[Rfam]
RNA sequence: GCCGGUCCGCACGGGAGCCUGGAGAGACCGGGCUGAGAGGGGGUCUGACGACCCCGACCGUCGAACCUGAUCCGGGUAAUGCCGGCGCAGGGAGCGUGAGGUCGUGUUCA
Numbered sequence: 001g002c003c004g005g006u007c008c009g010c011a012c013g014g015g016a017g018c019c020u021g022g023a024g025a026g027a028c029c030g031g032g033c034u035g036a037g038a039g040g041g042g043g044u045c046u047g048a049c050g051a052c053c054c055c056g057a058c059c060g061u062c063g064a065a066c067c068u069g070a071u072c073c074g075g076g077u078a079a080u081g082c083c084g085g086c087g088c089a090g091g092g093a094g095c096g097u098g099a100g101g102u103c104g105u106g107u108u109c110a
Stems, first nucleotide, its partner, number of pairs: 006098001008096003011061004017033005040055005066091004072085004

The record is a 110-nucleotide sequence from Allokutzneria albata, which matches "TPP riboswitch aptamer (THI element)" in Rfam.
Rfam links the family to the GO term thiamine pyrophosphate binding.
The match comes from Rfam's covariance-model search (67 bits).